Background:
The record is a 129-nucleotide RNA from Myotis brandtii, which matches "Small nucleolar RNA SNORA11" in Rfam. Rfam classes the family as an H/ACA-box small nucleolar RNA. The base pairs follow the family's consensus structure, which was predicted with RNAalifold. NCBI's taxonomy places the organism under Eukaryota, Eumetazoa, Chordata, Vertebrata, Myotis. The match comes from Rfam's covariance-model search (57 bits). U107 (SNORA11) is a member of the H/ACA class of snoRNAs that guide the sites of modification of uridines to pseudouridines. This snoRNA was identified by RT-PCR from blood cells and its expression confirmed by Northern blot analysis. A reference for the family is Gu et al. (2005), "A novel experimental approach for systematic identification of box H/ACA snoRNAs from eukaryotes", Nucleic Acids Res.
[Rfam]
RNA sequence: UGGGUGUGAAGAGAGCAGAGCGCCUGAAGAAUGGGUCCUCUGUGUAUAACACAUCCAACAGCAGCUUGGGCUUACUCCUCACGGGUGGCAGGAUGCUAUGACCUUCCUGUGACAUCACACCCUAUGUAU
Number, nucleotide and partner (000 for none) at each position: 001u000002g056003g055004g054005u053006g052007u051008g050009a000010a000011g000012a000013g045014a000015g043016c042017a041018g040019a039020g038021c000022g000023c034024c033025u000026g000027a000028a000029g000030a000031a000032u000033g024034g023035g000036u000037c000038c020039u019040c018041u017042g016043u015044g000045u013046a000047u000048a000049a000050c008051a007052c006053a005054u004055c003056c002057a000058a000059c000060a000061g000062c000063a000064g000065c000066u000067u000068g000069g122070g121071c000072u119073u000074a000075c000076u114077c000078c000079u000080c111081a110082c000083g104084g103085g102086u000087g000088g099089c000090a097091g096092g000093a000094u000095g000096c091097u090098a000099u088100g000101a000102c085103c084104u083105u000106c000107c000108u000109g000110u081111g080112a000113c000114a076115u000116c000117a000118c000119a072120c000121c070122c069123u000124a000125u000126g000127u000128a000129u000